Source information: epsC RNA: a 115-nucleotide RNA from Rossellomorea aquimaris. It scores 114 bits against the family's covariance model. It is annotated as a cis-regulatory element. The source organism's lineage runs through Bacteria, Bacillati, Bacillota, Bacillaceae and Rossellomorea.
RNA sequence: AGGGAAUGUCUCCUAUCCGUUACCAAUGGAGGCACUCGGUCACGCCGUGGGUGAAAAUAAUUCACCUUAGACGCUUGUCGUCGGUGGCGGGAUGUGAGGAAGGGUUAGAUGCCCA
Numbered sequence: 001a002g003g004g005a006a007u008g009u010c011u012c013c014u015a016u017c018c019g020u021u022a023c024c025a026a027u028g029g030a031g032g033c034a035c036u037c038g039g040u041c042a043c044g045c046c047g048u049g050g051g052u053g054a055a056a057a058u059a060a061u062u063c064a065c066c067u068u069a070g071a072c073g074c075u076u077g078u079c080g081u082c083g084g085u086g087g088c089g090g091g092a093u094g095u096g097a098g099g100a101a102g103g104g105u106u107a108g109a110u111g112c113c114c115a
Stems, first nucleotide, its partner, number of pairs: 002018003007034007035098004039093003043089004049067007070082004102114004